[Rfam]
Shown here is a 76-nucleotide RNA sequence from Alligator sinensis, a member of the family "Mammalian CPEB3 ribozyme".
RNA sequence: GCUGCAUAUUCAAGGCCACAGCAGAAGCAGUCAUAGUGUGUCCCUGUCAGAUUCCAACAAAUCUGUGAAUUCUGCU
Numbered sequence: 001g002c003u004g005c006a007u008a009u010u011c012a013a014g015g016c017c018a019c020a021g022c023a024g025a026a027g028c029a030g031u032c033a034u035a036g037u038g039u040g041u042c043c044c045u046g047u048c049a050g051a052u053u054c055c056a057a058c059a060a061a062u063c064u065g066u067g068a069a070u071u072c073u074g075c076u
Stems, first nucleotide, its partner, number of pairs: 014043002017040001020076007027039003048065006
NCBI's taxonomy places the organism under Eukaryota, Opisthokonta, Archosauria, Crocodylia, Alligator. The base pairs follow the family's consensus structure, which is taken from published work. Rfam describes the family as follows. The mammalian CPEB3 ribozyme is a self cleaving RNA located in the second intron of the CPEB3 gene which belongs to a family of genes regulating messenger RNA polyadenylation.